[Rfam]
RNA sequence: AAUGCCUUCGAAUAACCAGAAGGUCUCUUAACAAGACAAUACCGUCUGGUUCAGACAGAGGCGUACAACAAUCUGGAUCUCUUUUGAGAGGGUACGGAACCUCUGUUUCUGUGUUCCUUUUAUAGUUUGGAUUCGAAUAUUU
Dot-bracket structure: ..((((((.....(((((((..((................))..)))))))......))))))..........((((((.(((..(((.(..((((((.........))))))..))))..).))....)))))).......
Numbered sequence: 001a002a003u004g005c006c007u008u009c010g011a012a013u014a015a016c017c018a019g020a021a022g023g024u025c026u027c028u029u030a031a032c033a034a035g036a037c038a039a040u041a042c043c044g045u046c047u048g049g050u051u052c053a054g055a056c057a058g059a060g061g062c063g064u065a066c067a068a069c070a071a072u073c074u075g076g077a078u079c080u081c082u083u084u085u086g087a088g089a090g091g092g093u094a095c096g097g098a099a100c101c102u103c104u105g106u107u108u109c110u111g112u113g114u115u116c117c118u119u120u121u122a123u124a125g126u127u128u129g130g131a132u133u134c135g136a137a138u139a140u141u142u
Stems, first nucleotide, its partner, number of pairs: 003063006014051007023042002074135006081125002083122001086119003090116001093113006
A member of the RNA family "Small nucleolar RNA snoR138" from Populus tomentosa, 142 nucleotides long. The family's consensus secondary structure was predicted with mfold.